RNA: S15-Flavobacteria ribosomal protein leader
RNA sequence: UACAUUUGCCACGUCAGUAAAAAAAUUACUGAUGUACAUAAAAAUCAUUUAAAUAAUAUUGGCAUG
Numbered sequence: 001u002a003c004a005u006u007u008g009c010c011a012c013g014u015c016a017g018u019a020a021a022a023a024a025a026u027u028a029c030u031g032a033u034g035u036a037c038a039u040a041a042a043a044a045u046c047a048u049u050u051a052a053a054u055a056a057u058a059u060u061g062g063c064a065u066g
Base pairs, nucleotide, nucleotide: 014032015031016030017029018028019027